[Rfam]
RNA sequence: CCUAUGGAGUGUUAUACAGGCGAAAGUAGCUUUGGCAAAAUCGGGCAUUAUGAAGUAGGAA
Numbered sequence: 001c002c003u004a005u006g007g008a009g010u011g012u013u014a015u016a017c018a019g020g021c022g023a024a025a026g027u028a029g030c031u032u033u034g035g036c037a038a039a040a041u042c043g044g045g046c047a048u049u050a051u052g053a054a055g056u057a058g059g060a061a
Stems, first nucleotide, its partner, number of pairs: 001059005009048005021043003029036002
RNA: RAGATH-18 RNA
Organism: Clostridium liquoris